Shown here is a 452-nucleotide part of an RNA from uncultured crenarchaeote, a member of the family "Archaeal large subunit ribosomal RNA". The family's consensus secondary structure is taken from published work. The literature on the family includes a 2001 paper in Science by Yusupov et al., "Crystal structure of the ribosome at 5.5 A resolution".
RNA sequence: CCCACCGAAUCGGAUCGCAGUCCUACCUUAGUUGAGAUUGCCUGUGCUGUAGAGCACCGAUCGGAUAGUAAGGGUUCGAAAGAGCUCGCUAACCAUUCGAACUCCGAAUGUACAGGCGUCGUAGAAACUAGGAGACGGGUUUAUGUGGGGUAAGCCUCAUAACCGAGAGGGGGACAACCCAGACUAAAGUUAAGGUCCCUAAAUGUUUGCUAAGUGUCAAACAAAAGGGUGUCUUGGAGCAGAGACAGCAGGAAGGUAGGCUCAGAAGCAGCCAUCCUUCAAAGAGUGCGUAACAGCUCAUCUGCCGAGCUCCGAGGCCCCGAAAAUGGACGGGGCUCAAGUAAACUACCGAUACUUUAGAUCACCAACAAUGUUGGUGUAUGGUAGGUGGGCGUAGUGAUUGGGUAGAAGCUGGGUUGUGAAAUCCAGUGGACCGAUUUACUAGUGCAGAU
Numbered sequence: 001c002c003c004a005c006c007g008a009a010u011c012g013g014a015u016c017g018c019a020g021u022c023c024u025a026c027c028u029u030a031g032u033u034g035a036g037a038u039u040g041c042c043u044g045u046g047c048u049g050u051a052g053a054g055c056a057c058c059g060a061u062c063g064g065a066u067a068g069u070a071a072g073g074g075u076u077c078g079a080a081a082g083a084g085c086u087c088g089c090u091a092a093c094c095a096u097u098c099g100a101a102c103u104c105c106g107a108a109u110g111u112a113c114a115g116g117c118g119u120c121g122u123a124g125a126a127a128c129u130a131g132g133a134g135a136c137g138g139g140u141u142u143a144u145g146u147g148g149g150g151u152a153a154g155c156c157u158c159a160u161a162a163c164c165g166a167g168a169g170g171g172g173g174a175c176a177a178c179c180c181a182g183a184c185u186a187a188a189g190u191u192a193a194g195g196u197c198c199c200u201a202a203a204u205g206u207u208u209g210c211u212a213a214g215u216g217u218c219a220a221a222c223a224a225a226a227g228g229g230u231g232u233c234u235u236g237g238a239g240c241a242g243a244g245a246c247a248g249c250a251g252g253a254a255g256g257u258a259g260g261c262u263c264a265g266a267a268g269c270a271g272c273c274a275u276c277c278u279u280c281a282a283a284g285a286g287u288g289c290g291u292a293a294c295a296g297c298u299c300a301u302c303u304g305c306c307g308a309g310c311u312c313c314g315a316g317g318c319c320c321c322g323a324a325a326a327u328g329g330a331c332g333g334g335g336c337u338c339a340a341g342u343a344a345a346c347u348a349c350c351g352a353u354a355c356u357u358u359a360g361a362u363c364a365c366c367a368a369c370a371a372u373g374u375u376g377g378u379g380u381a382u383g384g385u386a387g388g389u390g391g392g393c394g395u396a397g398u399g400a401u402u403g404g405g406u407a408g409a410a411g412c413u414g415g416g417u418u419g420u421g422a423a424a425u426c427c428a429g430u431g432g433a434c435c436g437a438u439u440u441a442c443u444a445g446u447g448c449a450g451a452u
Stems, first nucleotide, its partner, number of pairs: 001392006012023004026134001027132006036120003040117008052105001053103002059098002063094002066091003072087006138164002141162005147157002169180003184360007194350003203347001205346006227321003231318010248305005254278003259273003279283001284299001288297002361382002363379005393447001395444004399439006411430008